Shown here is a 77-nucleotide RNA from Oryza meyeriana, a member of the family "Small nucleolar RNA SNORD25".
The base pairs follow the family's consensus structure, which was predicted with PFOLD.
Its Rfam clan is "SNORD25 clan".
For this family Rfam cites "A mammalian gene with introns instead of exons generating stable RNA products" (Tycowski et al., Nature, 1996).
The match comes from Rfam's covariance-model search (74 bits).
The family has 12 seed sequences and 985 matches in Rfam 15.1.
Rfam links the family to the GO terms nucleolus and RNA processing.
Taxonomically the source falls in Oryza meyeriana (Eukaryota, Magnoliopsida, Oryzeae, Oryzinae).
RNA sequence: CGUGGCGGUGAUGAGCCCUAACAGACCUGUAAUGAUUCUUGUGGAUAUGAUCGCUUGAUUUAAAGAACAUCGUCAUA
Numbered sequence: 001c002g003u004g005g006c007g008g009u010g011a012u013g014a015g016c017c018c019u020a021a022c023a024g025a026c027c028u029g030u031a032a033u034g035a036u037u038c039u040u041g042u043g044g045a046u047a048u049g050a051u052c053g054c055u056u057g058a059u060u061u062a063a064a065g066a067a068c069a070u071c072g073u074c075a076u077a
Base pairs, nucleotide, nucleotide: 002076003075004074005073006072